[Rfam]
RNA sequence: CCCGAGUCAGGCGGGCCCAUACGGGAGUCCCUGGACACCCCAGCCGCAGGUGGGUGUCGGAGAAAACAGCGGCAGCC
Numbered sequence: 001c002c003c004g005a006g007u008c009a010g011g012c013g014g015g016c017c018c019a020u021a022c023g024g025g026a027g028u029c030c031c032u033g034g035a036c037a038c039c040c041c042a043g044c045c046g047c048a049g050g051u052g053g054g055u056g057u058c059g060g061a062g063a064a065a066a067c068a069g070c071g072g073c074a075g076c077c
Stems, first nucleotide, its partner, number of pairs: 001015004007034005016025003036056004043073005
Description: The family of this 77-nucleotide RNA sequence is "Proteo-phage-1 RNA". Rfam's curators put it in the seed alignment. Rfam classes the family as a small RNA.